[Rfam]
RNA: permuted transfer-messenger RNA
RNA sequence: GGCGAUAAACGGCGCGUGGAAUAAGCGUUGCGGACCCGGGGGCAGUGCCCGGCGCCUCCACCAGCACCGCCUCGGCUGUGGCGGAGUGCGGGGGCGAAACAGGCUCGACGCGCGUGGUAAAGACCCGCCUUUCGCCCGGCAUGGUACCGCCGUCAUCGGGCCGAUCAUAAGUGCCAACGACAACAGCCGUAUGGCGCUCGCUGCCUGA
Numbered sequence: 001g002g003c004g005a006u007a008a009a010c011g012g013c014g015c016g017u018g019g020a021a022u023a024a025g026c027g028u029u030g031c032g033g034a035c036c037c038g039g040g041g042g043c044a045g046u047g048c049c050c051g052g053c054g055c056c057u058c059c060a061c062c063a064g065c066a067c068c069g070c071c072u073c074g075g076c077u078g079u080g081g082c083g084g085a086g087u088g089c090g091g092g093g094g095c096g097a098a099a100c101a102g103g104c105u106c107g108a109c110g111c112g113c114g115u116g117g118u119a120a121a122g123a124c125c126c127g128c129c130u131u132u133c134g135c136c137c138g139g140c141a142u143g144g145u146a147c148c149g150c151c152g153u154c155a156u157c158g159g160g161c162c163g164a165u166c167a168u169a170a171g172u173g174c175c176a177a178c179g180a181c182a183a184c185a186g187c188c189g190u191a192u193g194g195c196g197c198u199c200g201c202u203g204c205c206u207g208a
Base pairs, nucleotide, nucleotide: 001136002135003134004133005132014126016124017123026114027113028112030111031110032109036052037051038050039049040048053096054095055094056093057092058091059090137152138151139150140149